[Rfam]
RNA sequence: UACGUACCAUGCUCUGUAAUGGGAUGGGAUCCGAAGCCCCAUUGAGGGAUAAUACAGGCUCUCCCAUCCAACUCCUAUUCCGACACGUCCUCGUCGUGCAGAGUGGUAACAUGUGUCACCACAUAUCCAAGCUUGGGUACACGGGCUUGACCCAACCCCUAUAAGUUGGGAUGAAUUCUUUAAUAUAAGCCU
Numbered sequence: 001u002a003c004g005u006a007c008c009a010u011g012c013u014c015u016g017u018a019a020u021g022g023g024a025u026g027g028g029a030u031c032c033g034a035a036g037c038c039c040c041a042u043u044g045a046g047g048g049a050u051a052a053u054a055c056a057g058g059c060u061c062u063c064c065c066a067u068c069c070a071a072c073u074c075c076u077a078u079u080c081c082g083a084c085a086c087g088u089c090c091u092c093g094u095c096g097u098g099c100a101g102a103g104u105g106g107u108a109a110c111a112u113g114u115g116u117c118a119c120c121a122c123a124u125a126u127c128c129a130a131g132c133u134u135g136g137g138u139a140c141a142c143g144g145g146c147u148u149g150a151c152c153c154a155a156c157c158c159c160u161a162u163a164a165g166u167u168g169g170g171a172u173g174a175a176u177u178c179u180u181u182a183a184u185a186u187a188a189g190c191c192u
Base pairs, nucleotide, nucleotide: 011104012103013102014101015100016099017098022069023068024067025066026065027064028063029062031058032057085097086096087095089106090105110189112187113186114185115184116183118181125176126175128173133155134154135153136152137151138150157170158169159168

drz-agam-2-2 ribozyme: a 192-nucleotide sequence from Anopheles gambiae. The match comes from Rfam's covariance-model search (113 bits). Taxonomically the source falls in Anopheles gambiae (Eukaryota, Protostomia, Arthropoda, Pancrustacea). The family's consensus secondary structure is taken from published work.